[Rfam]
RNA sequence: GGUUGGUCUGAGUGCAGUGGUCGUUUACAUCUAAUUGAUCACAACCAGUUACAGAUUUGUUUGUUCCUUCCCCACUGCUUAAUUUGCCUACCCUAAA
Numbered sequence: 001g002g003u004u005g006g007u008c009u010g011a012g013u014g015c016a017g018u019g020g021u022c023g024u025u026u027a028c029a030u031c032u033a034a035u036u037g038a039u040c041a042c043a044a045c046c047a048g049u050u051a052c053a054g055a056u057u058u059g060u061u062u063g064u065u066c067c068u069u070c071c072c073c074a075c076u077g078c079u080u081a082a083u084u085u086g087c088c089u090a091c092c093c094u095a096a097a
Base pairs, nucleotide, nucleotide: 001093002092004090005089006088008086010085011084016076017075018074019073020072023071029065031063033061034060